[Rfam]
RNA: RAGATH-18 RNA
RNA sequence: CCUUUGGAGUGUUAUAUCAAAUGUGAGUAGAAUACAAUGUAUUUGAAAACAGACACGUUGAAAAAGGAA
Numbered sequence: 001c002c003u004u005u006g007g008a009g010u011g012u013u014a015u016a017u018c019a020a021a022u023g024u025g026a027g028u029a030g031a032a033u034a035c036a037a038u039g040u041a042u043u044u045g046a047a048a049a050c051a052g053a054c055a056c057g058u059u060g061a062a063a064a065a066g067g068a069a
Stems, first nucleotide, its partner, number of pairs: 001067005009056005022051003030044003035039001